This 81-nucleotide RNA from Alligator mississippiensis belongs to the Rfam family "Mammalian CPEB3 ribozyme".
[Rfam]
Nucleotides: 081
Base pairs, nucleotide, nucleotide: 018048019047020046024081025080027078028077029076030075031044032043033042053070054069055068057066058065059064
Number, partner (000 for none) and nucleotide at each position: 001000a002000g003000a004000g005000g006000u007000c008000a009000c010000a011000a012000a013000c014000u015000c016000g017000a018048g019047g020046u021000c022000a023000u024081a025080g026000a027078a028077g029076a030075a031044g032043c033042g034000c035000u036000u037000a038000u039000u040000g041000g042033u043032g044031c045000a046020g047019c048018c049000a050000u051000g052000u053070c054069a055068g056000a057066u058065u059064c060000c061000a062000a063000u064059g065058a066057a067000c068055c069054u070053g071000u072000g073000a074000a075030u076029u077028c078027u079000g080025c081024u
The match comes from Rfam's covariance-model search (36 bits). Taxonomically the source falls in Alligator (Eukaryota, Craniata, Teleostomi, Crocodylia).